[Rfam]
The family of this 93-nucleotide RNA sequence from Theobroma umbraticum is "Small nucleolar RNA snoR8a". Pairs were carried over by alignment from the consensus structure, which was predicted with WAR. Its family is annotated with RNA processing and nucleolus in the Gene Ontology.
RNA sequence: GAGUUAGUGAUAAUUUUAAAAAUAAUUCUUUAUUCUGACUCUCUCAAUUUAAGCAUGACAGACUUCUUAUUACAGCAAUAGAAUUUGAACUAU
Numbered sequence: 001g002a003g004u005u006a007g008u009g010a011u012a013a014u015u016u017u018a019a020a021a022a023u024a025a026u027u028c029u030u031u032a033u034u035c036u037g038a039c040u041c042u043c044u045c046a047a048u049u050u051a052a053g054c055a056u057g058a059c060a061g062a063c064u065u066c067u068u069a070u071u072a073c074a075g076c077a078a079u080a081g082a083a084u085u086u087g088a089a090c091u092a093u
Stems, first nucleotide, its partner, number of pairs: 003093002006091002
Dot-bracket structure: ..((.((..................................................................................))))